[Rfam]
RNA sequence: AGGGGUAUAGUUCAACGGUAGAAUGUCGGUCUCCAAAACCGCUGAUGAGGGUUCGAUUCCUUCUACCCCUG
Dot-bracket structure: (((((((..((((.......))))..((((.......)))).....(((((.......)))))))))))).
This 71-nucleotide RNA from Parvimonas micra belongs to the Rfam family "tRNA".
By type it is a transfer RNA.
The base pairs follow the family's consensus structure, which is taken from published work.